[Rfam]
The record is a 162-nucleotide RNA from bacterium 1XD42-8, which matches "Clostridiales-1 RNA" in Rfam. The family has 194 seed sequences and 1,172 matches in Rfam 15.1.
Nucleotides: 162
Stems, first nucleotide, its partner, number of pairs: 002161006010070004017063002020060010032048001033046005075121008085111004092104004124155007135145003
Number, partner (000 for none) and nucleotide at each position: 001000a002161g003160a004159u005158a006157c007156u008000a009000g010070g011069g012068u013067c014000a015000a016000a017063a018062g019000g020060u021059c022058g023057g024056a025055a026054a027053u028052u029051c030000g031000a032048u033046g034045c035044a036043a037042g038000c039000u040000u041000g042037c043036u044035u045034g046033c047000a048032a049000g050000a051029g052028g053027a054026u055025u056024u057023u058022u059021g060020a061000a062018c063017u064000u065000g066000g067013g068012a069011c070010c071000c072000g073000c074000c075121a076120a077119a078118a079117a080116u081115a082114u083000g084000a085111a086110a087109a088108a089000g090000u091000a092104g093103c094102c095101c096000g097000a098000u099000u100000a101095g102094g103093g104092c105000g106000g107000a108088u109087u110086u111085u112000g113000a114082a115081u116080g117079u118078u119077u120076u121075u122000g123000a124155g125154g126153a127152u128151u129150g130149c131000g132000a133000g134000a135145g136144c137143a138000c139000a140000a141000a142000c143137u144136g145135c146000g147000g148000a149130g150129c151128a152127a153126u154125c155124c156007g157006g158005u159004a160003u161002c162000a